Nucleotides: 054
Stems, first nucleotide, its partner, number of pairs: 003027003006023006035054002038051004
Number, partner (000 for none) and nucleotide at each position: 001000g002000g003027u004026u005025g006023g007022a008021a009020u010019g011018g012000u013000u014000a015000u016000u017000a018011c019010c020009a021008u022007u023006u024000u025005c026004a027003a028000g029000a030000g031000a032000a033000g034000c035054g036053g037000g038051c039050u040049c041048u042000g043000g044000g045000g046000u047000g048041g049040g050039a051038g052000g053036c054035u
About this RNA: A member of the RNA family "Na+ riboswitch aptamer (DUF1646)", 54 nucleotides long. The literature on the family includes a 2022 paper in Nat Chem Biol by White et al., "Na(+) riboswitches regulate genes for diverse physiological processes in bacteria".